The family of this 183-nucleotide sequence from Oryzias melastigma is "Small nucleolar RNA SNORA81". The family's consensus secondary structure was predicted with WAR. The match comes from Rfam's covariance-model search (70 bits). Its family is annotated with nucleolus and RNA processing in the Gene Ontology.

[Rfam]
RNA sequence: ACAUCCUUCUGCAUCCACUGAAAUCUGCUGUAAUCGCGUGAUCCAGGCUUUCUGUUUCAUGCGAUAAUGCCAGCAGAGUAUAGCGCAGAAGGAGAUUAUCGUGCACUGUGCUGAAAAUGAGAUGUGGUGGAACCUCUUUCUUAAUGUUCAUUGGCCUCCAUCUCAAGGCACAGUGCUACAAUC
Numbered sequence: 001a002c003a004u005c006c007u008u009c010u011g012c013a014u015c016c017a018c019u020g021a022a023a024u025c026u027g028c029u030g031u032a033a034u035c036g037c038g039u040g041a042u043c044c045a046g047g048c049u050u051u052c053u054g055u056u057u058c059a060u061g062c063g064a065u066a067a068u069g070c071c072a073g074c075a076g077a078g079u080a081u082a083g084c085g086c087a088g089a090a091g092g093a094g095a096u097u098a099u100c101g102u103g104c105a106c107u108g109u110g111c112u113g114a115a116a117a118u119g120a121g122a123u124g125u126g127g128u129g130g131a132a133c134c135u136c137u138u139u140c141u142u143a144a145u146g147u148u149c150a151u152u153g154g155c156c157u158c159c160a161u162c163u164c165a166a167g168g169c170a171c172a173g174u175g176c177u178a179c180a181a182u183c
Stems, first nucleotide, its partner, number of pairs: 018078002026075005033068002036065001039059002044054004103176008125154001127152001130149003
The family has 28 seed sequences and 1,161 matches in Rfam 15.1. Lineage of the source: Eukaryota > Euteleostomi > Neopterygii > Beloniformes > Oryzias.